This 104-nucleotide RNA from Salinarimonas soli belongs to the Rfam family "Glycine riboswitch aptamer". NCBI's taxonomy places the organism under Bacteria, Alphaproteobacteria, Hyphomicrobiales, Salinarimonadaceae, Salinarimonas.
RNA sequence: CACUCUGGAAAGCGGCGAUGCCCCACGGCGUCGCCCACCGACGGGCGUAACCUUGGGGGCUUCCGGGCCCGUGGGGGAAAUCUCUCAGGUCUCGGGACAGAGGG
Number, nucleotide and partner (000 for none) at each position: 001c104002a000003c102004u101005c100006u099007g098008g000009a000010a000011a000012g000013c000014g035015g034016c033017g032018a031019u030020g029021c000022c000023c000024c000025a000026c000027g000028g000029c020030g019031u018032c017033g016034c015035c014036c000037a090038c089039c088040g086041a085042c000043g000044g084045g083046c000047g082048u000049a000050a000051c077052c076053u075054u074055g000056g000057g000058g000059g000060c000061u000062u000063c000064c000065g000066g000067g000068c000069c000070c000071g000072u000073g000074g054075g053076g052077g051078a000079a000080a000081u000082c047083u045084c044085u041086c040087a000088g039089g038090u037091c000092u000093c000094g000095g000096g000097a000098c007099a006100g005101a004102g003103g000104g001
The match comes from Rfam's covariance-model search (35 bits).